[Rfam]
RNA sequence: ACCUUUGCGCAGUGGCGAUAUCAUAACCAAUGAGGUCUAUCCGAGGUGUGAUUAUUGCUAGUUGAAAACUUUACCAAUACCCCGCCUGGAGGACUUGCAAUAUAGUCCGCCAAGGCAAUUUUUGGAAGCCUCUACGGAGG
Numbered sequence: 001a002c003c004u005u006u007g008c009g010c011a012g013u014g015g016c017g018a019u020a021u022c023a024u025a026a027c028c029a030a031u032g033a034g035g036u037c038u039a040u041c042c043g044a045g046g047u048g049u050g051a052u053u054a055u056u057g058c059u060a061g062u063u064g065a066a067a068a069c070u071u072u073a074c075c076a077a078u079a080c081c082c083c084g085c086c087u088g089g090a091g092g093a094c095u096u097g098c099a100a101u102a103u104a105g106u107c108c109g110c111c112a113a114g115g116c117a118a119u120u121u122u123u124g125g126a127a128g129c130c131u132c133u134a135c136g137g138a139g140g
Stems, first nucleotide, its partner, number of pairs: 020052005026047003034042002084116003087112003091108005129140004
U4 spliceosomal RNA: a 140-nucleotide RNA sequence from Frankliniella occidentalis. It scores 125 bits against the family's covariance model. The family's consensus secondary structure is taken from published work. Its Rfam clan is "U4 clan". U4 small nuclear RNA (U4 snRNA) is a component of the major U2-dependent spliceosome. Rfam 15.1 lists 32,178 matches to the family in 2,547 species.